[Rfam]
Nucleotides: 233
Stems, first nucleotide, its partner, number of pairs: 007097001014092004024080006035070003046067005103128007130141003177198007204230004215226004
Number, partner (000 for none) and nucleotide at each position: 001000a002000a003000a004000a005000a006000g007097a008000g009000a010000u011000g012000a013000g014092a015091a016090g017089a018000u019000g020000a021000g022000u023000a024080a025079c026078g027077u028076u029075c030000u031000u032000a033000a034000c035070u036069g037068u038000c039000u040000a041000a042000g043000a044000g045000a046067a047066c048065c049064g050063c051000g052000g053000u054000u055000g056000g057000u058000g059000u060000g061000a062000a063050g064049c065048g066047g067046u068037a069036c070035g071000g072000g073000g074000c075029g076028a077027a078026c079025g080024u081000g082000a083000a084000g085000a086000u087000g088000g089017u090016c091015u092014u093000c094000a095000a096000c097007u098000a099000a100000a101000c102000g103128g104127a105126u106125g107124g108123a109122c110000g111000a112000g113000c114000g115000c116000a117000a118000g119000u120000a121000a122109g123108u124107u125106c126105a127104u128103c129000a130141u131140g132139g133000g134000u135000g136000u137000g138000c139132c140131c141130a142000u143000u144000a145000c146000a147000g148000c149000g150000c151000u152000g153000a154000g155000g156000u157000a158000u159000c160000a161000a162000c163000a164000g165000g166000u167000a168000c169000c170000c171000a172000a173000u174000g175000a176000g177198g178197a179196a180195g181194u182193g183192g184000a185000u186000g187000a188000a189000a190000g191000u192183c193182c194181g195180c196179u197178u198177c199000g200000a201000a202000c203000u204230a205229a206228g207227g208000u209000g210000g211000u212000a213000a214000c215226a216225c217224g218223a219000g220000c221000a222000a223218u224217c225216g226215u227207c228206c229205u230204u231000a232000u233000u
The family of this 233-nucleotide RNA from Secundilactobacillus similis is "T-box leader". The family's consensus secondary structure is taken from published work. A search with the family's covariance model found it, with a score of 95 bits.